[Rfam]
The family of this 177-nucleotide RNA sequence from Pelosinus sp. UFO1 is "M-box riboswitch aptamer (ykoK leader)". The match comes from Rfam's covariance-model search (165 bits). Rfam describes the family as follows. M-box riboswitch, also know as ykoK leader is described as a metaloregulatory RNA that sense divalent metals and function as a genetic control element of genes related to divalent metal transport in bacteria. It was first reported upstream of the B.subtilis ykoK gene and genes with related functions in other bacteria. Its family is annotated with regulation of gene expression and response to magnesium ion in the Gene Ontology.
RNA sequence: AUAAUUCUUCGUUAGGUGAGGCUCCUGCAUAAACAUAGGCCACUGCCCGGAAAUGUCGAGAGACGCCAAUGGGUAGAACAGGUACUACCGGAUUAAGGUUUUACUUAAGGUGGCUGAGUGAUUUGGGUUUGUACUCUACGUUAUGCAGUGCCAAAACUCGUACGAGUGAGGAAGGUG
Numbered sequence: 001a002u003a004a005u006u007c008u009u010c011g012u013u014a015g016g017u018g019a020g021g022c023u024c025c026u027g028c029a030u031a032a033a034c035a036u037a038g039g040c041c042a043c044u045g046c047c048c049g050g051a052a053a054u055g056u057c058g059a060g061a062g063a064c065g066c067c068a069a070u071g072g073g074u075a076g077a078a079c080a081g082g083u084a085c086u087a088c089c090g091g092a093u094u095a096a097g098g099u100u101u102u103a104c105u106u107a108a109g110g111u112g113g114c115u116g117a118g119u120g121a122u123u124u125g126g127g128u129u130u131g132u133a134c135u136c137u138a139c140g141u142u143a144u145g146c147a148g149u150g151c152c153a154a155a156a157c158u159c160g161u162a163c164g165a166g167u168g169a170g171g172a173a174g175g176u177g
Base pairs, nucleotide, nucleotide: 005173006172007171008170009169010168011163012162013096015158016157017156020152021151022150025148026147027146028145029144030143031142032141039114040113041112042111043110045074046073047072048071049070054065055064056063057062081105082104083103084102087099088098089097116136117135118134119133120132